This 84-nucleotide sequence from Pipistrellus kuhlii belongs to the Rfam family "mir-9215 microRNA precursor family". Lineage of the source: Eukaryota > Eumetazoa > Laurasiatheria > Chiroptera > Pipistrellus. Pairs were carried over by alignment from the consensus structure, which was predicted with RNAalifold.
RNA sequence: UGAAGUACUCUAACACUAGGACUUGUAGCUGCCAUGGGUUGGUGCAACCAGGCUUGCCCAGGGUCAGUGUCCACAGUGUUCAGU
Numbered sequence: 001u002g003a004a005g006u007a008c009u010c011u012a013a014c015a016c017u018a019g020g021a022c023u024u025g026u027a028g029c030u031g032c033c034a035u036g037g038g039u040u041g042g043u044g045c046a047a048c049c050a051g052g053c054u055u056g057c058c059c060a061g062g063g064u065c066a067g068u069g070u071c072c073a074c075a076g077u078g079u080u081c082a083g084u
Stems, first nucleotide, its partner, number of pairs: 001082004006078004013070005019065001022062001024060002028057002031053003037049004